A member of the RNA family "Manganese Mn2+ riboswitch aptamer (yybP-ykoY)" from Vibrio furnissii, 116 nucleotides long. The family has 29 seed sequences and 1,126 matches in Rfam 15.1. On this family, see Argaman et al., Curr Biol 2001: "Novel small RNA-encoding genes in the intergenic regions of Escherichia coli". The organism belongs to Vibrio, within Bacteria.
[Rfam]
RNA sequence: UCCCCCGUCUUUGGGGAGUAGCUUCUCGAUCAAAUGCCCUCAUUUGAUCGGUUCGUUCGUCAACACAAUUGGUGCACAAUCACCAUGGCGUUCGAGACUCGGUGCCGACCGAGUUU
Numbered sequence: 001u002c003c004c005c006c007g008u009c010u011u012u013g014g015g016g017a018g019u020a021g022c023u024u025c026u027c028g029a030u031c032a033a034a035u036g037c038c039c040u041c042a043u044u045u046g047a048u049c050g051g052u053u054c055g056u057u058c059g060u061c062a063a064c065a066c067a068a069u070u071g072g073u074g075c076a077c078a079a080u081c082a083c084c085a086u087g088g089c090g091u092u093c094g095a096g097a098c099u100c101g102g103u104g105c106c107g108a109c110c111g112a113g114u115u116u
Stems, first nucleotide, its partner, number of pairs: 026051008053095003058090005070085005096115007